[Rfam]
RNA: Eukaryotic large subunit ribosomal RNA, nucleotides 1 to 440
Organism: Zancudomyces culisetae
RNA sequence: UAAACUCAAAUCAGGUAGGAUUACCCGCUGAAUUUAAGCAUAUUAAUAAGCGGAGGAAAAGAAACUAACAAGGAUUCCCCUAGUAACUGCGAGUGAAGCGGGAAGAGCUCAAGCUUAAAAUCUGCAGGUAUUAAAUUACUUGCCGAAUUGUAGCUUAUGGAGGCAGUUUUCAUCUCUGCGGCGUGGUAAAAGUUCUUUUGAAUAAGACAUCAAAGAGGGUGAAAAUCCCGUAUUUGACCAUGCUGGGAAUACUAAAAGUAGGGAUAUGUGAACUGUUUUCUUUGAGUCGGGUUGUUUGGGAAUGCAGCCCUAAUUUGGAGGUAAAUUUCUUCUAAAGCUAAAUACUGGCAAGAGACCGAUAGCAAACAAGUACCGUGAGGGAAAGAUGAAAAGCACUUUGAAAAGAGAGUGAAAAGUACGUGAAAUUGUUGAAAGGGAAC
Numbered sequence: 001u002a003a004a005c006u007c008a009a010a011u012c013a014g015g016u017a018g019g020a021u022u023a024c025c026c027g028c029u030g031a032a033u034u035u036a037a038g039c040a041u042a043u044u045a046a047u048a049a050g051c052g053g054a055g056g057a058a059a060a061g062a063a064a065c066u067a068a069c070a071a072g073g074a075u076u077c078c079c080c081u082a083g084u085a086a087c088u089g090c091g092a093g094u095g096a097a098g099c100g101g102g103a104a105g106a107g108c109u110c111a112a113g114c115u116u117a118a119a120a121u122c123u124g125c126a127g128g129u130a131u132u133a134a135a136u137u138a139c140u141u142g143c144c145g146a147a148u149u150g151u152a153g154c155u156u157a158u159g160g161a162g163g164c165a166g167u168u169u170u171c172a173u174c175u176c177u178g179c180g181g182c183g184u185g186g187u188a189a190a191a192g193u194u195c196u197u198u199u200g201a202a203u204a205a206g207a208c209a210u211c212a213a214a215g216a217g218g219g220u221g222a223a224a225a226u227c228c229c230g231u232a233u234u235u236g237a238c239c240a241u242g243c244u245g246g247g248a249a250u251a252c253u254a255a256a257a258g259u260a261g262g263g264a265u266a267u268g269u270g271a272a273c274u275g276u277u278u279u280c281u282u283u284g285a286g287u288c289g290g291g292u293u294g295u296u297u298g299g300g301a302a303u304g305c306a307g308c309c310c311u312a313a314u315u316u317g318g319a320g321g322u323a324a325a326u327u328u329c330u331u332c333u334a335a336a337g338c339u340a341a342a343u344a345c346u347g348g349c350a351a352g353a354g355a356c357c358g359a360u361a362g363c364a365a366a367c368a369a370g371u372a373c374c375g376u377g378a379g380g381g382a383a384a385g386a387u388g389a390a391a392a393g394c395a396c397u398u399u400g401a402a403a404a405g406a407g408a409g410u411g412a413a414a415a416g417u418a419c420g421u422g423a424a425a426u427u428g429u430u431g432a433a434a435g436g437g438a439a440c
Stems, first nucleotide, its partner, number of pairs: 024055001025053005035042002065072002076103004086094002106339004112155004118149002121146002124143006160280002162277004169272003173264007182242006192208001194207004211215001218228002289310007317332004373380002396407004